Rfam assigns this 29-nucleotide sequence from Natrinema saccharevitans to the family "CRISPR RNA direct repeat element". Its family is annotated with defense response in the Gene Ontology. Rfam 15.1 lists 2,265 matches to the family in 51 species. NCBI's taxonomy places the organism under Archaea, Methanobacteriati, Halobacteriales, Natrialbaceae, Natrinema. The family's consensus secondary structure was predicted with WAR.
[Rfam]
Nucleotides: 029
Base pairs, nucleotide, nucleotide: 011024012023013022014021015020
Number, partner (000 for none) and nucleotide at each position: 001000g002000u003000u004000a005000c006000a007000g008000a009000c010000g011024g012023a013022c014021c015020c016000u017000u018000g019000u020015g021014g022013g023012u024011c025000g026000a027000a028000g029000c